[Rfam]
RNA sequence: UAUCAAACGCACACUGCUCUCAAACCGAGACCUAUAGGCAGUAUAAUACUUCGUCUCUCAUAUCCUGUAGUGAGGGAUUACAGGAAAUAAGUUUCGCA
Numbered sequence: 001u002a003u004c005a006a007a008c009g010c011a012c013a014c015u016g017c018u019c020u021c022a023a024a025c026c027g028a029g030a031c032c033u034a035u036a037g038g039c040a041g042u043a044u045a046a047u048a049c050u051u052c053g054u055c056u057c058u059c060a061u062a063u064c065c066u067g068u069a070g071u072g073a074g075g076g077a078u079u080a081c082a083g084g085a086a087a088u089a090a091g092u093u094u095c096g097c098a
Stems, first nucleotide, its partner, number of pairs: 013042005019037002027057005063085007
RNA: PhotoRC-II RNA